[Rfam]
RNA sequence: UCGCCGCACGGAGAUGGCAUUCCUCCGCGAACCGCCGAACGACGCCCUCGUCGUGACGCUGAUGAUGCCUACAUCGUC
Numbered sequence: 001u002c003g004c005c006g007c008a009c010g011g012a013g014a015u016g017g018c019a020u021u022c023c024u025c026c027g028c029g030a031a032c033c034g035c036c037g038a039a040c041g042a043c044g045c046c047c048u049c050g051u052c053g054u055g056a057c058g059c060u061g062a063u064g065a066u067g068c069c070u071a072c073a074u075c076g077u078c
Base pairs, nucleotide, nucleotide: 010026011025012024013023016069017068018067019066020065021064034059035058

Source information: The family of this 78-nucleotide RNA sequence from Roseateles depolymerans is "Fluoride riboswitch aptamer (crcB RNA motif)". Lineage of the source: Bacteria > Pseudomonadati > Betaproteobacteria > Burkholderiales > Roseateles.